[Rfam]
RNA sequence: CCGAAAGGGCGAAGGCGGGAGGAAAGUCCGGGCUCCAUGGAGACAAGGCGCCGGGUAACGCCCGGCCGGGCCUCUCAGCGAUGAGGGGUCUGAGGGACAGCGCCACAGAGAACGAACCGCCUCUUUUAAAGGGGCAAGGGUGAAAAGGUGCGGUAAGAGCGCACCGCCGGACCAGCAAUGGGACGGGCACGGCAAGCCCCGCCUGGAGCAAAACCGAAUAGGGACGGCGCGCCCCAAAAGGGCAGGCGGGUUUCCGCGCCGAGUCGUCCGGGUUGGUUGCUUGAGCCGCGCAGCAAUGUGCGGCCUAGAGGAAUGGCCGUCGCCUCGCGAGAGGUACAGAACCCGGCUUACAGACCGUCUGGCGCU
Numbered sequence: 001c002c003g004a005a006a007g008g009g010c011g012a013a014g015g016c017g018g019g020a021g022g023a024a025a026g027u028c029c030g031g032g033c034u035c036c037a038u039g040g041a042g043a044c045a046a047g048g049c050g051c052c053g054g055g056u057a058a059c060g061c062c063c064g065g066c067c068g069g070g071c072c073u074c075u076c077a078g079c080g081a082u083g084a085g086g087g088g089u090c091u092g093a094g095g096g097a098c099a100g101c102g103c104c105a106c107a108g109a110g111a112a113c114g115a116a117c118c119g120c121c122u123c124u125u126u127u128a129a130a131g132g133g134g135c136a137a138g139g140g141u142g143a144a145a146a147g148g149u150g151c152g153g154u155a156a157g158a159g160c161g162c163a164c165c166g167c168c169g170g171a172c173c174a175g176c177a178a179u180g181g182g183a184c185g186g187g188c189a190c191g192g193c194a195a196g197c198c199c200c201g202c203c204u205g206g207a208g209c210a211a212a213a214c215c216g217a218a219u220a221g222g223g224a225c226g227g228c229g230c231g232c233c234c235c236a237a238a239a240g241g242g243c244a245g246g247c248g249g250g251u252u253u254c255c256g257c258g259c260c261g262a263g264u265c266g267u268c269c270g271g272g273u274u275g276g277u278u279g280c281u282u283g284a285g286c287c288g289c290g291c292a293g294c295a296a297u298g299u300g301c302g303g304c305c306u307a308g309a310g311g312a313a314u315g316g317c318c319g320u321c322g323c324c325u326c327g328c329g330a331g332a333g334g335u336a337c338a339g340a341a342c343c344c345g346g347c348u349u350a351c352a353g354a355c356c357g358u359c360u361g362g363c364g365c366u
Stems, first nucleotide, its partner, number of pairs: 001011001024349003028346005033208004042253002046204005051065005066094001067092011095199002100197002102193003117139002119135007147165006166188001167186003172181003212278004222269006246259003285304008

The family of this 366-nucleotide sequence from Hyphococcus luteus is "Bacterial RNase P class A". Its family is annotated with ribonuclease P activity, dimeric ribonuclease P complex and tRNA processing in the Gene Ontology.